About this RNA: This 115-nucleotide RNA sequence from Cellulomonas sp. B6 belongs to the Rfam family "SAM (S-adenosyl methionine) riboswitch aptamer". Clan: SAM clan. Pairs were carried over by alignment from the consensus structure, which is taken from published work. Gene Ontology terms of the family: S-adenosylmethionine metabolic process and regulation of gene expression.

[Rfam]
RNA sequence: GGUCAAGAGUGUCAGCGCGAAGCCCCGGCUCGCUGGCCGGCAACCCUCCAACCGCGGUGGGGUGCCCCGGGUGACGACCUGGUCGCGCGCCGUCCGGCGCCGGCAAGCGCGGGAC
Numbered sequence: 001g002g003u004c005a006a007g008a009g010u011g012u013c014a015g016c017g018c019g020a021a022g023c024c025c026c027g028g029c030u031c032g033c034u035g036g037c038c039g040g041c042a043a044c045c046c047u048c049c050a051a052c053c054g055c056g057g058u059g060g061g062g063u064g065c066c067c068c069g070g071g072u073g074a075c076g077a078c079c080u081g082g083u084c085g086c087g088c089g090c091c092g093u094c095c096g097g098c099g100c101c102g103g104c105a106a107g108c109g110c111g112g113g114a115c
Stems, first nucleotide, its partner, number of pairs: 001079004009038001011037006021030002039066003044062003048057002082104004087100005